Shown here is a 132-nucleotide RNA sequence from Pantoea ananatis, a member of the family "RtT RNA". Rfam classes the family as a cis-regulatory element. NCBI's taxonomy places the organism under Bacteria, Pseudomonadati, Enterobacterales, Erwiniaceae, Pantoea ananatis. This family represents a bacterial cis-regulatory element known as RtT RNA. The exact function of RtT is unknown although it is thought that it may be involved in changing the cellular response in relation to amino acid starvation. The literature on the family includes a 1991 paper in Nucleic Acids Res by Bosl and Kersten, "A novel RNA product of the tyrT operon of Escherichia coli".
RNA sequence: CGCCAGUGUCUAUAGUGCAGGAUGAGAACCUGCGGCAGGUUCGACUGAAUCGCAAAGCGAUUCAGGCUGAUGCGCCAGCAUCACCCGCAGGGCGAGGCCCACCAGGCCGAGGCAAUCCUGCACGAGCCACCA
Numbered sequence: 001c002g003c004c005a006g007u008g009u010c011u012a013u014a015g016u017g018c019a020g021g022a023u024g025a026g027a028a029c030c031u032g033c034g035g036c037a038g039g040u041u042c043g044a045c046u047g048a049a050u051c052g053c054a055a056a057g058c059g060a061u062u063c064a065g066g067c068u069g070a071u072g073c074g075c076c077a078g079c080a081u082c083a084c085c086c087g088c089a090g091g092g093c094g095a096g097g098c099c100c101a102c103c104a105g106g107c108c109g110a111g112g113c114a115a116u117c118c119u120g121c122a123c124g125a126g127c128c129a130c131c132a
Base pairs, nucleotide, nucleotide: 015123016122017121018120019119020118021117023115033094034093036091040089042087043086047063048062049061050060051059052058069082070081071080072079073078
Dot-bracket structure: ..............(((((((.(.........((.(...(.((...((((((.....)))))).....(((((....)))))...)).).).))....................).))))))).........